[Rfam]
RNA sequence: UGAGAAAAGCAGAAGUGAGAGCUUCUCGCCUUGCGACUAACGUUGUCUGGCUCUACGUGUUAAGUUUUCUUCGGAAAGAUAAUGAUGUAGUGAUGGACUUGUGUUAGCAAGUCCGUUUCGUUUUUCUCGA
Numbered sequence: 001u002g003a004g005a006a007a008a009g010c011a012g013a014a015g016u017g018a019g020a021g022c023u024u025c026u027c028g029c030c031u032u033g034c035g036a037c038u039a040a041c042g043u044u045g046u047c048u049g050g051c052u053c054u055a056c057g058u059g060u061u062a063a064g065u066u067u068u069c070u071u072c073g074g075a076a077a078g079a080u081a082a083u084g085a086u087g088u089a090g091u092g093a094u095g096g097a098c099u100u101g102u103g104u105u106a107g108c109a110a111g112u113c114c115g116u117u118u119c120g121u122u123u124u125u126c127u128c129g130a
Stems, first nucleotide, its partner, number of pairs: 011026006028051003033046005092117010
The family of this 130-nucleotide sequence from Streptococcus sp. zg-36 is "Ribosomal protein L20 leader". Gene Ontology term of the family: regulation of gene expression. Pairs were carried over by alignment from the consensus structure, which was predicted with CMfinder. This family is a putative r-protein leader autoregulatory structure found in B. subtilis and other low-GC Gram-positive bacteria. It is located in the 5' untranslated regions of mRNAs encoding initiation factor 3 followed by ribosomal proteins L35 and L20 (infC-rpmI-rplT). A Rho-independent transcription terminator structure that is probably involved in regulation is included at the 3' end. By type it is a cis-regulatory leader.